This 49-nucleotide sequence from Beijerinckia indica belongs to the Rfam family "ffh sRNA". The base pairs follow the family's consensus structure, which is taken from published work. It is annotated as a small RNA. Rfam's curators put it in the seed alignment. The source organism's lineage runs through Bacteria, Pseudomonadati, Hyphomicrobiales, Beijerinckia indica and Beijerinckia indica subsp. indica.
[Rfam]
RNA sequence: AAACCCCGGCCACGCCCGGCAGCGCGUUGCGCCCCCGGGCGCGUUUUGC
Number, nucleotide and partner (000 for none) at each position: 001a000002a000003a000004c000005c000006c000007c000008g000009g000010c000011c000012a000013c041014g040015c039016c038017c037018g036019g035020c000021a000022g032023c031024g030025c029026g000027u000028u000029g025030c024031g023032c022033c000034c000035c019036c018037g017038g016039g015040c014041g013042c000043g000044u000045u000046u000047u000048g000049c000